RNA sequence: AUAAUGAUACUUUCGUCCAGCCACAGCCCCGCACGUCUGCGGGAUCACGCAAUGGGGGCGACUCGGUGAGAACCACGGAGAGGUGAAACUCCUAUGA
Numbered sequence: 001a002u003a004a005u006g007a008u009a010c011u012u013u014c015g016u017c018c019a020g021c022c023a024c025a026g027c028c029c030c031g032c033a034c035g036u037c038u039g040c041g042g043g044a045u046c047a048c049g050c051a052a053u054g055g056g057g058g059c060g061a062c063u064c065g066g067u068g069a070g071a072a073c074c075a076c077g078g079a080g081a082g083g084u085g086a087a088a089c090u091c092c093u094a095u096g097a
Stems, first nucleotide, its partner, number of pairs: 012094001013061006062080003066076003081093003
Overview: This 97-nucleotide RNA belongs to the Rfam family "pemK RNA". The family's RNA type in Rfam is cis-regulatory element.